[Rfam]
RNA sequence: GCCGGUCCUCGGUAGUGGCUUCCGGGAUCACCCCGGGGGCUUCGAUCGAAGACCGGC
Numbered sequence: 001g002c003c004g005g006u007c008c009u010c011g012g013u014a015g016u017g018g019c020u021u022c023c024g025g026g027a028u029c030a031c032c033c034c035g036g037g038g039g040c041u042u043c044g045a046u047c048g049a050a051g052a053c054c055g056g057c
Stems, first nucleotide, its partner, number of pairs: 001057007009049005017041010
RNA: Actino-pnp RNA